Background
The family of this 216-nucleotide RNA sequence from Pseudomonas fluvialis is "PhrS". The literature on the family includes a 2006 paper in Nucleic Acids Res by Livny et al., "Identification of 17 Pseudomonas aeruginosa sRNAs and prediction of sRNA-encoding genes in 10 diverse pathogens using the bioinformatic tool sRNAPredict2".
RNA sequence: CUGCAGCCAUGUCACACAGGCUAACCGCAGGAGGCAGCCAUGUUCAUGGAUACCGUGGUGUUUGCUGGAAUCGGCACCGUUCUACUGAUGGUCGCUUUCUUGGGCGGCUUUGGCUAUUUCAUCUGGAAGGACUCGCACAAGCGCAAGCAGGGCUGACCUUUCGGAUUCACAGGCACGCAAGGCAAUUUGGGCGACUUCUGGUCGCCCUUUUUUUUG
Dot-bracket structure: .........((((.........................................(((.....)))...................(....)............))))..................................................................((.(....))).....(((((((.....))))))).........
A search with the family's covariance model found it, with a score of 170 bits.
NCBI's taxonomy places the organism under Bacteria, Pseudomonadati, Pseudomonadota, Pseudomonadaceae, Pseudomonas.